[Rfam]
This 141-nucleotide RNA from Pandion haliaetus belongs to the Rfam family "Small nucleolar RNA SNORD94".
The base pairs follow the family's consensus structure, which was predicted with RNAalifold.
By type it is a C/D-box small nucleolar RNA.
A search with the family's covariance model found it, with a score of 119 bits.
RNA sequence: AUGGCAGUGAUGAUUGGCGCAGGGGUACGGACCUCAGCUAGAUAAUGGGAGCUGAAUGCAAACUGUUUAUUUCAGUGCUGCUGGCAUGUGGCCGGUCACUGGAAACAGGUUUGCAUGAGACUUUGCCAAAAACUGAGCCAU
Numbered sequence: 001a002u003g004g005c006a007g008u009g010a011u012g013a014u015u016g017g018c019g020c021a022g023g024g025g026u027a028c029g030g031a032c033c034u035c036a037g038c039u040a041g042a043u044a045a046u047g048g049g050a051g052c053u054g055a056a057u058g059c060a061a062a063c064u065g066u067u068u069a070u071u072u073c074a075g076u077g078c079u080g081c082u083g084g085c086a087u088g089u090g091g092c093c094g095g096u097c098a099c100u101g102g103a104a105a106c107a108g109g110u111u112u113g114c115a116u117g118a119g120a121c122u123u124u125g126c127c128a129a130a131a132a133c134u135g136a137g138c139c140a141u
Stems, first nucleotide, its partner, number of pairs: 001141005